Shown here is a 233-nucleotide part of an RNA from Thermobaculum terrenum, a member of the family "Bacterial large subunit ribosomal RNA". Clan: LSU clan. Its family is annotated with ribosome and structural constituent of ribosome in the Gene Ontology. The family has 102 seed sequences and 51,934 matches in Rfam 15.1. It is one of the family's seed sequences. NCBI's taxonomy places the organism under Bacteria, Bacillati, Chloroflexota, Thermobaculum (SeqCode), Thermobaculum terrenum.
RNA sequence: GAGUUGAUCUGCGUGGCGAGGCUAAGGGGGUGAUACCCGGAGCCGUAGCGAAAGCGAGUCCGAACAGGGCGUGUUAGUCGCGCGGAUCAGACCCGAAACCGGAGUGAGCUACCCAUGGCCAGGGUGAAGCGCGGGUAAAACCGCGUGGAGGCCCGCACCCACCAGUGUUGCAAAACUGGGGGAUGAGCUGUGGGUAGGGGUGAAAUGCCAAGCGAACCCGGAGAUAGCUGGUU
Numbered sequence: 001g002a003g004u005u006g007a008u009c010u011g012c013g014u015g016g017c018g019a020g021g022c023u024a025a026g027g028g029g030g031u032g033a034u035a036c037c038c039g040g041a042g043c044c045g046u047a048g049c050g051a052a053a054g055c056g057a058g059u060c061c062g063a064a065c066a067g068g069g070c071g072u073g074u075u076a077g078u079c080g081c082g083c084g085g086a087u088c089a090g091a092c093c094c095g096a097a098a099c100c101g102g103a104g105u106g107a108g109c110u111a112c113c114c115a116u117g118g119c120c121a122g123g124g125u126g127a128a129g130c131g132c133g134g135g136u137a138a139a140a141c142c143g144c145g146u147g148g149a150g151g152c153c154c155g156c157a158c159c160c161a162c163c164a165g166u167g168u169u170g171c172a173a174a175a176c177u178g179g180g181g182g183a184u185g186a187g188c189u190g191u192g193g194g195u196a197g198g199g200g201u202g203a204a205a206u207g208c209c210a211a212g213c214g215a216a217c218c219c220g221g222a223g224a225u226a227g228c229u230g231g232u233u
Base pairs, nucleotide, nucleotide: 005089006088007087008086009085010084011083012082013081014080015079016078017077020044021043022042023041026038027037028036048055049054058070059069060068061067092231093230095228099221100220101219102218104217105216109197110196111195112194113193114192115191116190117189118188119187120185122154123153124152125151129146130145131144132143133142134141158182159181160180162179163178164177165176166175199209200208201207